[Rfam]
RNA sequence: ACGUGCCCGGGGCGCUCCGCGUGCCCGGGUGACAGACAGGCAUUGCGCCAUGGAACAAACUGGCGUAAUAGGGCGUU
Numbered sequence: 001a002c003g004u005g006c007c008c009g010g011g012g013c014g015c016u017c018c019g020c021g022u023g024c025c026c027g028g029g030u031g032a033c034a035g036a037c038a039g040g041c042a043u044u045g046c047g048c049c050a051u052g053g054a055a056c057a058a059a060c061u062g063g064c065g066u067a068a069u070a071g072g073g074c075g076u077u
Stems, first nucleotide, its partner, number of pairs: 004031008013023003045066006051059001
Shown here is a 77-nucleotide RNA sequence from Streptomyces buecherae, a member of the family "nrdJ RNA". The match comes from Rfam's covariance-model search (49 bits).